The family of this 307-nucleotide sequence from Acer saccharum is "Plant signal recognition particle RNA". The organism belongs to Acer, within Eukaryota. A search with the family's covariance model found it, with a score of 260 bits. Rfam classes the family as a non-coding RNA gene.
RNA sequence: GCCGAGCUUGGUCACUCAAGCUUGUGACCCGAGUGGGGGCAUUAAGGUGGUGGGACAUUGACUCGAUCUACAGAGUCGGGUCCAUGGUUGGCUCAUGACUGGUUUGCCCGUUUCAAGCUAGGAGUUGGGUCAUGUGACUCUUGCGAAGGCUGGAGCCACAUGGUCCCUAGAGAAGAGGGCAAUGCGUGAGGCUGGUUUCACAGAGCAGCGACUACCUCCCGCUCCUGGCAGUGAAAGGAUUACAGGCCGGUGCCAUCUGGUCCCAACAUGCCUCUGUGGGUUGGGCACUAACUGGACCAUCACCUUU
Numbered sequence: 001g002c003c004g005a006g007c008u009u010g011g012u013c014a015c016u017c018a019a020g021c022u023u024g025u026g027a028c029c030c031g032a033g034u035g036g037g038g039g040c041a042u043u044a045a046g047g048u049g050g051u052g053g054g055a056c057a058u059u060g061a062c063u064c065g066a067u068c069u070a071c072a073g074a075g076u077c078g079g080g081u082c083c084a085u086g087g088u089u090g091g092c093u094c095a096u097g098a099c100u101g102g103u104u105u106g107c108c109c110g111u112u113u114c115a116a117g118c119u120a121g122g123a124g125u126u127g128g129g130u131c132a133u134g135u136g137a138c139u140c141u142u143g144c145g146a147a148g149g150c151u152g153g154a155g156c157c158a159c160a161u162g163g164u165c166c167c168u169a170g171a172g173a174a175g176a177g178g179g180c181a182a183u184g185c186g187u188g189a190g191g192c193u194g195g196u197u198u199c200a201c202a203g204a205g206c207a208g209c210g211a212c213u214a215c216c217u218c219c220c221g222c223u224c225c226u227g228g229c230a231g232u233g234a235a236a237g238g239a240u241u242a243c244a245g246g247c248c249g250g251u252g253c254c255a256u257c258u259g260g261u262c263c264c265a266a267c268a269u270g271c272c273u274c275u276g277u278g279g280g281u282u283g284g285g286c287a288c289u290a291a292c293u294g295g296a297c298c299a300u301c302a303c304c305u306u307u
Base pairs, nucleotide, nucleotide: 001040002039003038004023005022006021007020008019009018010017011016028037029036030035044306045305046304047303048302049301050300051299052298053297056294057293058291059290060289062285063284064283065282066281068279069278070277071276072275073274074273075272077270078264079263080262082260083259084258087256089255090254091253093252099250100249101248102247103246104245105244106243108238109237111236112235113234114233115232117229118228119227120226121225122224123223124222125221127166128165129164130163131162132161133160134159135158136157138155139154140153141152143150144149167172175218176217177216178215185210186209187208192203193202194201